[Rfam]
RNA sequence: GGGAAAUGAGGAGCGGUAUAAACUCGCAAAUUAUUAUGCGAGAGGGGUGCCCGCCCCAACCAAGCCUGUUACGACAACAGGGCAUCCCAAUGACUUUUACCAUCUGAUCCC
Numbered sequence: 001g002g003g004a005a006a007u008g009a010g011g012a013g014c015g016g017u018a019u020a021a022a023c024u025c026g027c028a029a030a031u032u033a034u035u036a037u038g039c040g041a042g043a044g045g046g047g048u049g050c051c052c053g054c055c056c057c058a059a060c061c062a063a064g065c066c067u068g069u070u071a072c073g074a075c076a077a078c079a080g081g082g083c084a085u086c087c088c089a090a091u092g093a094c095u096u097u098u099a100c101c102a103u104c105u106g107a108u109c110c111c
Stems, first nucleotide, its partner, number of pairs: 001111004015101004023042005044088008066080004